[Rfam]
Small nucleolar RNA U54: a 93-nucleotide sequence from Papaver somniferum. A reference for the family is Chen et al. (2003), "The high diversity of snoRNAs in plants: identification and comparative study of 120 snoRNA genes from Oryza sativa", Nucleic Acids Res. Rfam's curators write: U54 is a C/D box small nucleolar RNA, which acts as a methylation guide for 18S ribosomal RNA in plants. Pairs were carried over by alignment from the consensus structure, which was predicted with PFOLD. By type it is a C/D-box small nucleolar RNA. The organism belongs to Papaver, within Eukaryota.
RNA sequence: AGCUCGAUGAUUACAUGCCUUUCACAGGCAAUAUACGCUAUUCUCAUUGGUAUAUAACCAACAGGAUGAUAACAUAAAAUGUUUAUGAGAGCU
Numbered sequence: 001a002g003c004u005c006g007a008u009g010a011u012u013a014c015a016u017g018c019c020u021u022u023c024a025c026a027g028g029c030a031a032u033a034u035a036c037g038c039u040a041u042u043c044u045c046a047u048u049g050g051u052a053u054a055u056a057a058c059c060a061a062c063a064g065g066a067u068g069a070u071a072a073c074a075u076a077a078a079a080u081g082u083u084u085a086u087g088a089g090a091g092c093u
Stems, first nucleotide, its partner, number of pairs: 001093005